[Rfam]
RNA: c-di-GMP-I riboswitch aptamer
RNA sequence: UGAUCAAGUGGGCAAACUCAUCGAAAGGUGAGGACGCAAAGCUUCCGGUCUACGGGUUCGGGCUCUUGGGAGUCCUGGCUCAGGACAGCGGGGUCGCCGGG
Numbered sequence: 001u002g003a004u005c006a007a008g009u010g011g012g013c014a015a016a017c018u019c020a021u022c023g024a025a026a027g028g029u030g031a032g033g034a035c036g037c038a039a040a041g042c043u044u045c046c047g048g049u050c051u052a053c054g055g056g057u058u059c060g061g062g063c064u065c066u067u068g069g070g071a072g073u074c075c076u077g078g079c080u081c082a083g084g085a086c087a088g089c090g091g092g093g094u095c096g097c098c099g100g101g
Stems, first nucleotide, its partner, number of pairs: 012037002017032006041094003045091003048086003055080004